The family of this 387-nucleotide part of an RNA from Colletotrichum gloeosporioides is "Eukaryotic large subunit ribosomal RNA". Pairs were carried over by alignment from the consensus structure, which is taken from published work. The organism belongs to Colletotrichum gloeosporioides species complex, within Eukaryota.
RNA sequence: AACCUUAUUAUAAUAGUAAUUAAGCUUAGUAUGAGAGGAACUACUUAUUUAGAUAAUUAGUUUUUACAGCUAUCUAACUAGGUAGUACUAUAAAGCUACUAUCUGCUAGAUAAUAGCUAAACGCCUCUAAGUUAGAAUCUAUAUUAGAAUAUAAUAAUACCUCUUAUAUAUAUAGAUAGAUAUAAAUAGGCUUUAGCUUAACGUCUUAGCAGGCAAUUCCUCUACUACUCUUAAAGUAAGUAGUAGUAUUUUGCAAAUUAUAAUUUCAGUAUAAGUAAAGUUAAAUCCUUUAUAGAUAACUUAAAUAUGCAAAAAGGUCUUAUAAGCAGUAGAGUAGCCUUAUUAUUAUAAUCUGCUGAGGGUAAGCCCUCCUUCACCUUAAUUUCC
Number, nucleotide and partner (000 for none) at each position: 001a000002a000003c000004c000005u157006u156007a155008u154009u153010a152011u151012a000013a000014u146015a145016g144017u143018a000019a049020u000021u047022a046023a045024g044025c000026u000027u000028a000029g000030u000031a000032u000033g000034a000035g000036a000037g000038g000039a000040a000041c000042u000043a000044c024045u023046u022047a021048u000049u019050u105051a104052g103053a102054u101055a000056a000057u000058u098059a097060g096061u000062u000063u000064u000065u092066a091067c000068a089069g088070c085071u084072a083073u082074c081075u080076a000077a000078c000079u000080a075081g074082g073083u072084a071085g070086u000087a000088c069089u068090a000091u066092a065093a000094a000095g000096c060097u059098a058099c000100u000101a054102u053103c052104u051105g050106c000107u141108a140109g139110a000111u000112a000113a000114u134115a133116g132117c131118u130119a000120a000121a000122c000123g000124c000125c000126u000127c000128u000129a000130a118131g117132u116133u115134a114135g000136a000137a000138u000139c109140u108141a107142u000143a017144u016145u015146a014147g000148a000149a000150u000151a011152u010153a009154a008155u007156a006157a005158u000159a000160c000161c000162u000163c000164u000165u279166a000167u277168a276169u275170a000171u273172a000173u000174a000175g000176a000177u000178a000179g000180a000181u000182a000183u000184a000185a000186a000187u000188a000189g000190g000191c000192u000193u000194u000195a000196g000197c000198u000199u000200a000201a000202c000203g000204u000205c000206u000207u000208a000209g000210c000211a000212g000213g000214c000215a000216a000217u000218u000219c000220c000221u000222c000223u000224a000225c000226u000227a000228c000229u000230c000231u000232u000233a000234a000235a000236g000237u000238a000239a000240g000241u000242a000243g000244u000245a000246g000247u000248a000249u000250u000251u000252u000253g000254c000255a000256a000257a000258u000259u000260a000261u000262a000263a000264u000265u000266u000267c000268a000269g000270u000271a000272u000273a171274a000275g169276u168277a167278a000279a165280g000281u000282u000283a385284a384285a383286u382287c000288c000289u303290u000291u000292a000293u000294a000295g000296a000297u000298a000299a000300c000301u000302u000303a289304a000305a000306u000307a000308u000309g377310c000311a000312a374313a373314a000315a000316g368317g367318u000319c362320u361321u000322a000323u000324a000325a000326g356327c355328a354329g353330u000331a352332g000333a000334g349335u348336a347337g346338c000339c000340u000341u000342a000343u000344u000345a000346u337347u336348a335349u334350a000351a000352u331353c329354u328355g327356c326357u000358g000359a000360g000361g320362g319363u000364a000365a000366g000367c317368c316369c000370u000371c000372c000373u313374u312375c000376a000377c309378c000379u000380u000381a000382a286383u285384u284385u283386c000387c000